[Rfam]
RNA sequence: AAAAAGGGCCAGUUGGCUAUAUAUGCCAUGCAUGGUUUAGGCCGUGCACUGUAUGGACAUCAAGACAUAUGGCUGGCAGAAUUUCUGAACCCUCCAAUAGGGUUGGCACGCUUGCCGACCCUUCAAA
Numbered sequence: 001a002a003a004a005a006g007g008g009c010c011a012g013u014u015g016g017c018u019a020u021a022u023a024u025g026c027c028a029u030g031c032a033u034g035g036u037u038u039a040g041g042c043c044g045u046g047c048a049c050u051g052u053a054u055g056g057a058c059a060u061c062a063a064g065a066c067a068u069a070u071g072g073c074u075g076g077c078a079g080a081a082u083u084u085c086u087g088a089a090c091c092c093u094c095c096a097a098u099a100g101g102g103u104u105g106g107c108a109c110g111c112u113u114g115c116c117g118a119c120c121c122u123u124c125a126a127a
Stems, first nucleotide, its partner, number of pairs: 008077005014028004029048008049072007097123001100121009
RNA: U11 spliceosomal RNA